[Rfam]
RNA sequence: CCGCUAUUGUCAUUGGGGAGUAGUUAUUCUUAGCAAUCAGCUAAGGAGUUCAUGUCAACAAGCUUGAGGAGUAUGCCUCAUGGCGUGAACAGCCGUCGCGCAAGCGAUGAAAGCUAAACGAGACCUUUGGCCGAAAUGCAUAUUGCCAGCUGAGCGAGUUGCAUUGUCGUGCCAUUGGAUUUUUACUCGCUCAGCUGGAU
Numbered sequence: 001c002c003g004c005u006a007u008u009g010u011c012a013u014u015g016g017g018g019a020g021u022a023g024u025u026a027u028u029c030u031u032a033g034c035a036a037u038c039a040g041c042u043a044a045g046g047a048g049u050u051c052a053u054g055u056c057a058a059c060a061a062g063c064u065u066g067a068g069g070a071g072u073a074u075g076c077c078u079c080a081u082g083g084c085g086u087g088a089a090c091a092g093c094c095g096u097c098g099c100g101c102a103a104g105c106g107a108u109g110a111a112a113g114c115u116a117a118a119c120g121a122g123a124c125c126u127u128u129g130g131c132c133g134a135a136a137u138g139c140a141u142a143u144u145g146c147c148a149g150c151u152g153a154g155c156g157a158g159u160u161g162c163a164u165u166g167u168c169g170u171g172c173c174a175u176u177g178g179a180u181u182u183u184u185a186c187u188c189g190c191u192c193a194g195c196u197g198g199a200u
Stems, first nucleotide, its partner, number of pairs: 028046003048090010065080005095200003
The record is a 200-nucleotide sequence from Gammaproteobacteria bacterium ESL0073, which matches "Manganese Mn2+ riboswitch aptamer (yybP-ykoY)" in Rfam. The literature on the family includes a 2001 paper in Curr Biol by Argaman et al., "Novel small RNA-encoding genes in the intergenic regions of Escherichia coli". Rfam's curators write: This RNA was originally discovered in E. coli during a large scale screen and was named SraF. The family was later found to exist upstream of related families of protein genes in many bacteria, including the the yybP and ykoK genes in B. subtilis. The specific functions of these proteins are unknown, but this structured RNA element may be involved in their genetic regulation as a riboswitch. The base pairs follow the family's consensus structure. The family has 29 seed sequences and 1,126 matches in Rfam 15.1.